Shown here is a 102-nucleotide RNA sequence from Musa textilis, a member of the family "Plastid-psbA-1 3UTR RNA". It is annotated as a cis-regulatory element. Pairs were carried over by alignment from the consensus structure, which was predicted with LocARNA. For this family Rfam cites "Retrograde signaling in plants: A critical review focusing on the GUN pathway and beyond" (Richter et al., Plant Commun, 2023). The source organism's lineage runs through Eukaryota, Embryophyta, Magnoliopsida, commelinids and Musa. The sequence is in the family's curated seed alignment.
RNA sequence: UGAAAAAUAAUUUUUUUUGUGAAAAAAAAAAUAAAGUAUCAAACAAAGUAGCAAUACCCCAUGUCUUGCUAAAGCAAGACAUGGGGUAUUGCUACUUUGUUU
Numbered sequence: 001u002g003a004a005a006a007a008u009a010a011u012u013u014u015u016u017u018u019g020u021g022a023a024a025a026a027a028a029a030a031a032u033a034a035a036g037u038a039u040c041a042a043a044c045a046a047a048g049u050a051g052c053a054a055u056a057c058c059c060c061a062u063g064u065c066u067u068g069c070u071a072a073a074g075c076a077a078g079a080c081a082u083g084g085g086g087u088a089u090u091g092c093u094a095c096u097u098u099g100u101u102u
Stems, first nucleotide, its partner, number of pairs: 045098013059084003063080005